[Rfam]
RNA: MIR1435 microRNA precursor family
RNA sequence: UAGGUUUACCCUAAGUCAAACCAUUUGAAGUUUGACCAAAGUUAUAGAAAAAGUACUAAUAUUUAUGACACCAAAUAGGUAGAAUAUGAAAAUAUAUUUCAUAAUAAAUCUAACAAUACUUAUUUGGUAUCAUAAAUCCGAGUAGUUUUUUUUAUAAAUUUGGUCAAACUUAAAAAAGUUUGACUUAAGACAAACCCAA
Number, nucleotide and partner (000 for none) at each position: 001u000002a000003g000004g000005u194006u193007u192008a000009c000010c000011c000012u187013a186014a185015g184016u183017c182018a181019a180020a179021c178022c000023a000024u175025u174026u173027g000028a000029a000030g000031u168032u167033u166034g165035a164036c000037c000038a000039a000040a000041g000042u000043u000044a000045u154046a153047g152048a151049a150050a149051a148052a147053g000054u144055a143056c142057u000058a000059a000060u000061a137062u136063u135064u134065a133066u132067g131068a000069c000070a000071c127072c126073a125074a124075a123076u122077a121078g120079g119080u118081a117082g000083a000084a000085u000086a000087u000088g000089a000090a000091a000092a000093u000094a000095u000096a000097u000098u000099u000100c000101a000102u000103a000104a000105u000106a000107a000108a000109u000110c000111u000112a000113a000114c000115a000116a000117u081118a080119c079120u078121u077122a076123u075124u074125u073126g072127g071128u000129a000130u000131c067132a066133u065134a064135a063136a062137u061138c000139c000140g000141a000142g056143u055144a054145g000146u000147u052148u051149u050150u049151u048152u047153u046154a045155u000156a000157a000158a000159u000160u000161u000162g000163g000164u035165c034166a033167a032168a031169c000170u000171u000172a000173a026174a025175a024176a000177a000178g021179u020180u019181u018182g017183a016184c015185u014186u013187a012188a000189g000190a000191c000192a007193a006194a005195c000196c000197c000198a000199a000